[Rfam]
RNA sequence: GGGGCACUCUUAGAACCCCUGUGUCGUUGUGUUAAUAGCGCUUGCUUUGGCCGAGCAUCGUGGUUAGUGAAUC
Number, nucleotide and partner (000 for none) at each position: 001g019002g018003g017004g016005c000006a000007c000008u000009c000010u000011u000012a000013g000014a000015a000016c004017c003018c002019c001020u000021g000022u000023g000024u000025c000026g000027u000028u000029g000030u000031g000032u067033u066034a065035a064036u063037a000038g061039c060040g059041c000042u000043u057044g056045c055046u054047u053048u000049g000050g000051c000052c000053g047054a046055g045056c044057a043058u000059c040060g039061u038062g000063g036064u035065u034066a033067g032068u000069g000070a000071a000072u000073c000